[Rfam]
RNA sequence: GAAUGAAAAUGAUGAAUAUAAGGAGAAAUGAUGAUCAAUUUUUGUUCAAAUGAUCCAAAAAUAUAUCCUUAUUCGCUACGUUCUUUCUGAUUCAUUA
Number, nucleotide and partner (000 for none) at each position: 001g000002a000003a000004u094005g093006a092007a091008a000009a000010u000011g000012a000013u000014g000015a000016a000017u000018a000019u000020a000021a000022g000023g000024a000025g000026a000027a000028a000029u000030g000031a000032u000033g000034a000035u000036c000037a000038a000039u000040u000041u000042u000043u000044g000045u000046u000047c000048a000049a000050a000051u000052g000053a000054u000055c000056c000057a000058a000059a000060a000061a000062u000063a000064u000065a000066u000067c000068c000069u000070u000071a000072u000073u000074c000075g000076c000077u000078a000079c000080g000081u000082u000083c000084u000085u000086u000087c000088u000089g000090a000091u007092u006093c005094a004095u000096u000097a000
Shown here is a 97-nucleotide RNA sequence from Solanum lycopersicum, a member of the family "Small nucleolar RNA R32/R81/Z41".
The family's consensus secondary structure was predicted with PFOLD.
For this family Rfam cites "Identification of 66 box C/D snoRNAs in Arabidopsis thaliana: extensive gene duplications generated multiple isoforms predicting new ribosomal RNA 2'-O-methylation sites" (Barneche et al., J Mol Biol, 2001).
Rfam classes the family as a C/D-box small nucleolar RNA.
The family has 6 seed sequences and 238 matches in Rfam 15.1.
Gene Ontology terms of the family: RNA processing and nucleolus.